mir-10 microRNA precursor family: a 74-nucleotide sequence from Bactrocera dorsalis. Its family is annotated with RISC complex and miRNA-mediated post-transcriptional gene silencing in the Gene Ontology. The literature on the family includes a 2001 paper in Science by Lee and Ambros, "An extensive class of small RNAs in Caenorhabditis elegans".

RNA sequence: CUACAUCCACCCUGUAGAUCCGAAUUUGUUUUGAUGUUUGUGGUGACAAAUUCGGUUCUAGAGAGGUUUGUGUG
Numbered sequence: 001c002u003a004c005a006u007c008c009a010c011c012c013u014g015u016a017g018a019u020c021c022g023a024a025u026u027u028g029u030u031u032u033g034a035u036g037u038u039u040g041u042g043g044u045g046a047c048a049a050a051u052u053c054g055g056u057u058c059u060a061g062a063g064a065g066g067u068u069u070g071u072g073u074g
Stems, first nucleotide, its partner, number of pairs: 002072004011063001016059003020055011